Notes:
A member of the RNA family "Group II catalytic intron D1-D4-3" from Bacillus sp. OxB-1, 165 nucleotides long. The pairing is the family consensus, mapped onto this sequence. Rfam describes the family as follows. Group II introns are found in rRNA, tRNA and mRNA of organelles in fungi, plants and protists, and also in mRNA in bacteria.
RNA sequence: GGUAUCGCGAGGUUCCGUGCGGAGGACCAGAAGGCAAAAUCCGGAACAGGUGGUAUAUACCAUGUUGGCUGGUAGGAUGGGAUGACCUUGCAAAAGAUGGGGAUGUCCAAAACCACACUAUAUCCUAUUAGUUAUGAGGACUGGAUUCGGAGGAAAGAGAAUUGA
Numbered sequence: 001g002g003u004a005u006c007g008c009g010a011g012g013u014u015c016c017g018u019g020c021g022g023a024g025g026a027c028c029a030g031a032a033g034g035c036a037a038a039a040u041c042c043g044g045a046a047c048a049g050g051u052g053g054u055a056u057a058u059a060c061c062a063u064g065u066u067g068g069c070u071g072g073u074a075g076g077a078u079g080g081g082a083u084g085a086c087c088u089u090g091c092a093a094a095a096g097a098u099g100g101g102g103a104u105g106u107c108c109a110a111a112a113c114c115a116c117a118c119u120a121u122a123u124c125c126u127a128u129u130a131g132u133u134a135u136g137a138g139g140a141c142u143g144g145a146u147u148c149g150g151a152g153g154a155a156a157g158a159g160a161a162u163u164g165a
Stems, first nucleotide, its partner, number of pairs: 001016002004013003028164003035157001040151005047143003060139002063136001068132003072128007080108004086101003
It scores 61 bits against the family's covariance model.
The organism belongs to Bacillus, within Bacteria.